[Rfam]
Notes
The family of this 58-nucleotide RNA is "pemK RNA". The base pairs follow the family's consensus structure, which is taken from published work. The sequence is in the family's curated seed alignment.

RNA sequence: ACAAUGAUACUCCUGUACGCAGCUCCGGGCAUUCCCCGGAGGGGUGAGAGUCCCGUGA
Numbered sequence: 001a002c003a004a005u006g007a008u009a010c011u012c013c014u015g016u017a018c019g020c021a022g023c024u025c026c027g028g029g030c031a032u033u034c035c036c037c038g039g040a041g042g043g044g045u046g047a048g049a050g051u052c053c054c055g056u057g058a
Stems, first nucleotide, its partner, number of pairs: 012055001013022003023041003027037003042054003